A member of the RNA family "Bacterial large subunit ribosomal RNA" from Spirosoma linguale, 342 nucleotides of a longer RNA. It is one of the family's seed sequences.

RNA sequence: CGAAAGAAUCAUGGUUAAGGAACUCGGCAAAAUUACCCUGUAACUUCGGGAUAAGGGGGGCCUACCUGGUAACAGGAGGCUGCAGAGAAGACGCCCAGGCGACUGUUUACCAAAAACACAGGACUCUGCCAAAAUGAAAGUUGACGCAUAGGGUCUGACACCUGCCCGGUGCUGGAAGGUUAAGGGGGGAGCUUAGUGGGUAACUGCGAAGGUUUGAACUGAAGCCCCAGUAAACGGCGGCCGUAACUAUAACGGUCCUAAGGUAGCGAAAUUCCUUGUCGGGUAAGUUCCGACCUGCACGAAUGGUGUAACGAUCUGGGCACUGUCUCAACCAUGAGUUCG
Numbered sequence: 001c002g003a004a005a006g007a008a009u010c011a012u013g014g015u016u017a018a019g020g021a022a023c024u025c026g027g028c029a030a031a032a033u034u035a036c037c038c039u040g041u042a043a044c045u046u047c048g049g050g051a052u053a054a055g056g057g058g059g060g061c062c063u064a065c066c067u068g069g070u071a072a073c074a075g076g077a078g079g080c081u082g083c084a085g086a087g088a089a090g091a092c093g094c095c096c097a098g099g100c101g102a103c104u105g106u107u108u109a110c111c112a113a114a115a116a117c118a119c120a121g122g123a124c125u126c127u128g129c130c131a132a133a134a135u136g137a138a139a140g141u142u143g144a145c146g147c148a149u150a151g152g153g154u155c156u157g158a159c160a161c162c163u164g165c166c167c168g169g170u171g172c173u174g175g176a177a178g179g180u181u182a183a184g185g186g187g188g189g190a191g192c193u194u195a196g197u198g199g200g201u202a203a204c205u206g207c208g209a210a211g212g213u214u215u216g217a218a219c220u221g222a223a224g225c226c227c228c229a230g231u232a233a234a235c236g237g238c239g240g241c242c243g244u245a246a247c248u249a250u251a252a253c254g255g256u257c258c259u260a261a262g263g264u265a266g267c268g269a270a271a272u273u274c275c276u277u278g279u280c281g282g283g284u285a286a287g288u289u290c291c292g293a294c295c296u297g298c299a300c301g302a303a304u305g306g307u308g309u310a311a312c313g314a315u316c317u318g319g320g321c322a323c324u325g326u327c328u329c330a331a332c333c334a335u336g337a338g339u340u341c342g
Stems, first nucleotide, its partner, number of pairs: 001342004009337008018328003036058004044049001060080004065076004081085001093321007100313002104118003121156008129146001133142003159308004164238003169235002171231005178226003184220002189215005196207004239257006258262001268295001278294006